[Rfam]
RNA sequence: UGGAUGUGGAGAGAGCAGAGCGCCUGAGGAAGGGCUGCUUCGUGACUAACACAUCCAACAGUAACUUGGGCUUACUCCUCACGGGUGGCAGCAUACCAUGACCGUCCUGUGACAUUUCGCCCAACAAU
Numbered sequence: 001u002g003g004a005u006g007u008g009g010a011g012a013g014a015g016c017a018g019a020g021c022g023c024c025u026g027a028g029g030a031a032g033g034g035c036u037g038c039u040u041c042g043u044g045a046c047u048a049a050c051a052c053a054u055c056c057a058a059c060a061g062u063a064a065c066u067u068g069g070g071c072u073u074a075c076u077c078c079u080c081a082c083g084g085g086u087g088g089c090a091g092c093a094u095a096c097c098a099u100g101a102c103c104g105u106c107c108u109g110u111g112a113c114a115u116u117u118c119g120c121c122c123a124a125c126a127a128u
Base pairs, nucleotide, nucleotide: 002056003055004054005053006052007051008050015043016042018040019039020038021037022035023034024033069121070120071119076114079111082104083103084102086098087097088096090094
RNA: Small nucleolar RNA SNORA11